[Rfam]
RNA: mir-290 microRNA precursor family
Organism: Marmota monax
RNA sequence: GUAGUUCUCAAACUGUGGGGGCACUUCUUGUGCCACAAAAAAAAUUGCCGCCAGAGUUUGAGUGCUAC
Numbered sequence: 001g002u003a004g005u006u007c008u009c010a011a012a013c014u015g016u017g018g019g020g021g022c023a024c025u026u027c028u029u030g031u032g033c034c035a036c037a038a039a040a041a042a043a044a045u046u047g048c049c050g051c052c053a054g055a056g057u058u059u060g061a062g063u064g065c066u067a068c
Stems, first nucleotide, its partner, number of pairs: 004065002007062006016053003020049004025044001028041002